[Rfam]
RNA sequence: GUGAUGGGGUUGUGAACGCCUCGUGAGGCGGCAGCCGAAGGUUCGCGUCUUUCAAUCAAUAGACUUGUUGAAGGGAUGCGUUAUG
Numbered sequence: 001g002u003g004a005u006g007g008g009g010u011u012g013u014g015a016a017c018g019c020c021u022c023g024u025g026a027g028g029c030g031g032c033a034g035c036c037g038a039a040g041g042u043u044c045g046c047g048u049c050u051u052u053c054a055a056u057c058a059a060u061a062g063a064c065u066u067g068u069u070g071a072a073g074g075g076a077u078g079c080g081u082u083a084u085g
Stems, first nucleotide, its partner, number of pairs: 005023006045079008